[Rfam]
RNA: Small nucleolar RNA SNORA32
RNA sequence: UGGUCAUUACCAAGGCUUUGAGGAAUUCAGUUUCUCAUUUGCUGUGGACAUGACCAUAAAAAAAAUUUCCCAUUAGGUUUUCUAUGUGCUACUUGGCUAGCUAUUAACCUGUUGGGCACAUGU
Numbered sequence: 001u002g003g004u005c006a007u008u009a010c011c012a013a014g015g016c017u018u019u020g021a022g023g024a025a026u027u028c029a030g031u032u033u034c035u036c037a038u039u040u041g042c043u044g045u046g047g048a049c050a051u052g053a054c055c056a057u058a059a060a061a062a063a064a065a066u067u068u069c070c071c072a073u074u075a076g077g078u079u080u081u082c083u084a085u086g087u088g089c090u091a092c093u094u095g096g097c098u099a100g101c102u103a104u105u106a107a108c109c110u111g112u113u114g115g116g117c118a119c120a121u122g123u
Base pairs, nucleotide, nucleotide: 003054004053005052006051007050010047011046012045028041029040030039069116070115071114072113076109077108078107079106088101089100